[Rfam]
RNA sequence: UAUGAAAUCAAAUAAGCCUGUCGUAUAGUAUCGGGGAUAUGGCCCGAAAGUUUCUACCGAGUUACCGUAAAUAACUUGACUACGAUUUUAUUUCCCACUGCU
Number, nucleotide and partner (000 for none) at each position: 001u000002a000003u000004g000005a000006a000007a000008u000009c000010a000011a000012a000013u000014a000015a000016g000017c000018c000019u000020g086021u085022c084023g083024u082025a081026u000027a000028g000029u049030a000031u047032c046033g045034g044035g043036g000037a000038u000039a000040u000041g000042g000043c035044c034045c033046g032047a031048a000049a029050g000051u000052u000053u000054c000055u000056a000057c000058c078059g077060a076061g075062u074063u073064a072065c000066c000067g000068u000069a000070a000071a000072u064073a063074a062075c061076u060077u059078g058079a000080c000081u025082a024083c023084g022085a021086u020087u000088u000089u000090a000091u000092u000093u000094c000095c000096c000097a000098c000099u000100g000101c000102u000

The record is a 102-nucleotide RNA sequence from Planococcus salinus, which matches "Purine riboswitch aptamer" in Rfam. NCBI's taxonomy places the organism under Bacteria, Bacillati, Bacilli, Caryophanales, Planococcus. The base pairs follow the family's consensus structure, which is taken from published work.